[Rfam]
Nucleotides: 124
Stems, first nucleotide, its partner, number of pairs: 008117006020048006050104003053100002057098003063091005
Number, partner (000 for none) and nucleotide at each position: 001000g002000g003000a004000c005000g006000a007000a008117c009116c010115c011114u012113u013112g014000g015000a016000g017000a018000g019000a020048u021047u022046u023045c024044g025043c026000a027000c028000a029000u030000u031000c032000a033000a034000a035000a036000u037000a038000a039000u040000g041000u042000c043025g044024c045023g046022g047021a048020a049000c050104g051103c052102c053100g054099a055000a056000g057098g058097c059096g060000a061000a062000a063091g064090a065089g066088u067087g068000a069000u070000u071000u072000u073000u074000g075000u076000u077000g078000u079000a080000a081000a082000a083000c084000a085000a086000a087067c088066a089065c090064u091063u092000c093000a094000a095000a096059c097058g098057c099054u100053c101000a102052g103051g104050c105000a106000a107000a108000a109000g110000g111000a112013c113012a114011g115010g116009g117008g118000c119000a120000g121000a122000a123000a124000g

Glycine riboswitch aptamer: a 124-nucleotide sequence from Lonepinella koalarum. Taxonomically the source falls in Lonepinella (Bacteria, Pseudomonadota, Gammaproteobacteria, Pasteurellales). About the family: This family represents the bacterial glycine riboswitch.